[Rfam]
RNA: Repression of heat shock gene expression (ROSE) element
Organism: Devosia sp. Root413D1
RNA sequence: CCGGCCGCUGAAACGGGGCCGGUGAGAAUGGGGUAGCCCGCUAUGACGGGCGUGUCCCUCGUACCUAUGUUGCUCUGAGGAGAAUGUGGUUAUGAGAA
Numbered sequence: 001c002c003g004g005c006c007g008c009u010g011a012a013a014c015g016g017g018g019c020c021g022g023u024g025a026g027a028a029u030g031g032g033g034u035a036g037c038c039c040g041c042u043a044u045g046a047c048g049g050g051c052g053u054g055u056c057c058c059u060c061g062u063a064c065c066u067a068u069g070u071u072g073c074u075c076u077g078a079g080g081a082g083a084a085u086g087u088g089g090u091u092a093u094g095a096g097a098a
Stems, first nucleotide, its partner, number of pairs: 001022006008016002031057005036051005058096006065089007073082003